Description:
A member of the RNA family "Rhizobiales sRNA Atu_C8" from Pseudaminobacter salicylatoxidans, 116 nucleotides long. The family's consensus secondary structure was predicted with CMfinder. Taxonomically the source falls in Pseudaminobacter (Bacteria, Pseudomonadota, Alphaproteobacteria, Phyllobacteriaceae). A reference for the family is Wilms et al. (2012), "Deep sequencing uncovers numerous small RNAs on all four replicons of the plant pathogen Agrobacterium tumefaciens", RNA Biol.
RNA sequence: GAAGAUGGCACUCAUUCUCGUAGGAAGGCGCGUGGGCAAGGCGGUGUAACCGCCGGGCAAGUCCUCCCAUGCGCAAACACACAGGCUCCCUCGGGGGCCUUUUUUAUUGGCAAAAA
Numbered sequence: 001g002a003a004g005a006u007g008g009c010a011c012u013c014a015u016u017c018u019c020g021u022a023g024g025a026a027g028g029c030g031c032g033u034g035g036g037c038a039a040g041g042c043g044g045u046g047u048a049a050c051c052g053c054c055g056g057g058c059a060a061g062u063c064c065u066c067c068c069a070u071g072c073g074c075a076a077a078c079a080c081a082c083a084g085g086c087u088c089c090c091u092c093g094g095g096g097g098c099c100u101u102u103u104u105u106a107u108u109g110g111c112a113a114a115a116a
Base pairs, nucleotide, nucleotide: 024111028074029073030072031071032070033069034068035067036066040054041053042052043051044050057063081101083100084099085098086097087096088095089094